[Rfam]
RNA sequence: GCCGAGCUUAGUAACAUGGGCUUGUGACCUGAGUGGGGGCAUUAAAGUGGCGGGACGUUGCUCCUGUCUAGAUGGCUGGACUUUGGGCUGGCUAAACUCUGGCUUGCGCAAUCCAAACCGGGAGUUGAAACAAGGGACUCGAGCGAAAACUUGAGUUUCGUGGCUCCUAAAGUGAAGGGAACCGCGUUAGGCUGGCUUCACAGAGCAGCGACCACCUCCCGCUUCCGGCAGUGGAUGGAUAAUGAGUCGGUGCCAUCCGGGUCCAUAUAGCUCGAUGGGCUGCUGGAUCCUUGGGCAGCAAUUA
Dot-bracket structure: ((((((((((......)))))))....(((....)))))).....(((.((.(..((..(.(((.(((((...((((((((((.(.(.(((.((....((((((((..(.(((((..((((((((.((..((.((((((((((......)))))))))).))..))(....).(.(((......(((....(((......)))....)))....))).).))))))))...)))))).....))))))))))))))).))))))....))))...)))...)).))).)..))..).)).))).
Numbered sequence: 001g002c003c004g005a006g007c008u009u010a011g012u013a014a015c016a017u018g019g020g021c022u023u024g025u026g027a028c029c030u031g032a033g034u035g036g037g038g039g040c041a042u043u044a045a046a047g048u049g050g051c052g053g054g055a056c057g058u059u060g061c062u063c064c065u066g067u068c069u070a071g072a073u074g075g076c077u078g079g080a081c082u083u084u085g086g087g088c089u090g091g092c093u094a095a096a097c098u099c100u101g102g103c104u105u106g107c108g109c110a111a112u113c114c115a116a117a118c119c120g121g122g123a124g125u126u127g128a129a130a131c132a133a134g135g136g137a138c139u140c141g142a143g144c145g146a147a148a149a150c151u152u153g154a155g156u157u158u159c160g161u162g163g164c165u166c167c168u169a170a171a172g173u174g175a176a177g178g179g180a181a182c183c184g185c186g187u188u189a190g191g192c193u194g195g196c197u198u199c200a201c202a203g204a205g206c207a208g209c210g211a212c213c214a215c216c217u218c219c220c221g222c223u224u225c226c227g228g229c230a231g232u233g234g235a236u237g238g239a240u241a242a243u244g245a246g247u248c249g250g251u252g253c254c255a256u257c258c259g260g261g262u263c264c265a266u267a268u269a270g271c272u273c274g275a276u277g278g279g280c281u282g283c284u285g286g287a288u289c290c291u292u293g294g295g296c297a298g299c300a301a302u303u304a
Stems, first nucleotide, its partner, number of pairs: 001040003004023007028037003046303003050299002053296001056293002060289001062287003066283002068278003074272004078264006085257001087256001089255003093252002099250008109237001111236005118228008127166002131162002134159010167172001174219001176217003185210003192203003

This 304-nucleotide sequence from Manihot esculenta belongs to the Rfam family "Plant signal recognition particle RNA".
Pairs were carried over by alignment from the consensus structure, which is taken from published work.
By type it is a non-coding RNA gene.
Its family is annotated with signal recognition particle, endoplasmic reticulum targeting and SRP-dependent cotranslational protein targeting to membrane, signal sequence recognition in the Gene Ontology.
Clan: SRP clan.